[Rfam]
RNA sequence: GUCAUCGCGAGGUGGGGUCUGAAGGAAGCGUGGAGCAAAGCCAUGACCUGACGACAGAAACUUGAUACCAAGAUCAUCCGAUCGGCAGAGCGAGCAUAUGAUCGCGAAGGCCAUAACCAUCAAGGGUCGAGUGAGUAAAUCAGGCAGGUGUGUGUGAAGGCGGUCGGGC
Numbered sequence: 001g002u003c004a005u006c007g008c009g010a011g012g013u014g015g016g017g018u019c020u021g022a023a024g025g026a027a028g029c030g031u032g033g034a035g036c037a038a039a040g041c042c043a044u045g046a047c048c049u050g051a052c053g054a055c056a057g058a059a060a061c062u063u064g065a066u067a068c069c070a071a072g073a074u075c076a077u078c079c080g081a082u083c084g085g086c087a088g089a090g091c092g093a094g095c096a097u098a099u100g101a102u103c104g105c106g107a108a109g110g111c112c113a114u115a116a117c118c119a120u121c122a123a124g125g126g127u128c129g130a131g132u133g134a135g136u137a138a139a140u141c142a143g144g145c146a147g148g149u150g151u152g153u154g155u156g157a158a159g160g161c162g163g164u165c166g167g168g169c
Stems, first nucleotide, its partner, number of pairs: 002015005028169002031166002035161002040155002043153003046149005061144006072136001074134001076132002079129004084112003090105004
RNA: Group II catalytic intron D1-D4-3